[Rfam]
RNA sequence: AAAAAUUGAUUUUGGUAUCGGUAUCUUAUUGACAUUUAGACUUCUCCUAAUUACCUCGGUUGCUUUCGCCGGGGUUUUU
Numbered sequence: 001a002a003a004a005a006u007u008g009a010u011u012u013u014g015g016u017a018u019c020g021g022u023a024u025c026u027u028a029u030u031g032a033c034a035u036u037u038a039g040a041c042u043u044c045u046c047c048u049a050a051u052u053a054c055c056u057c058g059g060u061u062g063c064u065u066u067c068g069c070c071g072g073g074g075u076u077u078u079u
Stems, first nucleotide, its partner, number of pairs: 053075008
Record summary
Shown here is a 79-nucleotide sequence from Tolypothrix sp. NIES-4075, a member of the family "Photosynthesis regulatory RNA1". Formerly known as Syr1 discovered in Synechocystis sp PCC 6803, is a regulatory factor controlling photosynthetic functions. PsrR1 interacts with the ribosome binding regions of several photosynthesis-related mRNAs. In particular, psaL mRNA is processed by RNase E only in the presence of PsrR1. Taxonomically the source falls in Tolypothrix (Bacteria, Cyanobacteriota, Nostocales, Tolypothrichaceae). Pairs were carried over by alignment from the consensus structure, which was predicted with CMfinder.